[Rfam]
RNA sequence: UGAGGAGUGGCCAAAUUGGUAAGGCUCCUGACUCUGGAUCAGGCAAUUGCAGGUUCGAGUCCUGCCUCCUCAG
Numbered sequence: 001u002g003a004g005g006a007g008u009g010g011c012c013a014a015a016u017u018g019g020u021a022a023g024g025c026u027c028c029u030g031a032c033u034c035u036g037g038a039u040c041a042g043g044c045a046a047u048u049g050c051a052g053g054u055u056c057g058a059g060u061c062c063u064g065c066c067u068c069c070u071c072a073g
Stems, first nucleotide, its partner, number of pairs: 001072007010025003027043005049065005
Rfam assigns this 73-nucleotide sequence from Chloroherpeton thalassium to the family "tRNA". Lineage of the source: Bacteria > Pseudomonadati > Chlorobiia > Chlorobiales > Chloroherpeton thalassium. Rfam links the family to the GO term triplet codon-amino acid adaptor activity. The base pairs follow the family's consensus structure, which is taken from published work.